[Rfam]
RNA sequence: CGGUGUGAGCUAUUCAUAUGAGGUGCAGUGUGAGAGUGGAACACAUUUCAUCGCGUGUGACCUCCCUACACAGC
Numbered sequence: 001c002g003g004u005g006u007g008a009g010c011u012a013u014u015c016a017u018a019u020g021a022g023g024u025g026c027a028g029u030g031u032g033a034g035a036g037u038g039g040a041a042c043a044c045a046u047u048u049c050a051u052c053g054c055g056u057g058u059g060a061c062c063u064c065c066c067u068a069c070a071c072a073g074c
Base pairs, nucleotide, nucleotide: 003071004070005069006068007067009065014060015059016058017057018056019055020054023051024050025049027047
mir-1421 microRNA precursor family: a 74-nucleotide sequence from Ornithorhynchus anatinus.
The source organism's lineage runs through Eukaryota, Opisthokonta, Gnathostomata, Teleostomi and Ornithorhynchus.